[Rfam]
RNA sequence: GGAGGCGUAUCCGGUCUGGUGACCGGCGCGGUCUUCAACACCGACGGGCGGCAGGACCUGCCGCCGGCGGGUUCGAUUCCCGUCCGCCUCC
Numbered sequence: 001g002g003a004g005g006c007g008u009a010u011c012c013g014g015u016c017u018g019g020u021g022a023c024c025g026g027c028g029c030g031g032u033c034u035u036c037a038a039c040a041c042c043g044a045c046g047g048g049c050g051g052c053a054g055g056a057c058c059u060g061c062c063g064c065c066g067g068c069g070g071g072u073u074c075g076a077u078u079c080c081c082g083u084c085c086g087c088c089u090c091c
Base pairs, nucleotide, nucleotide: 001091002090003089004088005087006086007085009083011026012025013024014023015022016021029043030042031041032040047065048064049063050062051061068082069081070080071079
Rfam assigns this 91-nucleotide sequence from Lentzea albidocapillata to the family "Selenocysteine transfer RNA". A search with the family's covariance model found it, with a score of 78 bits.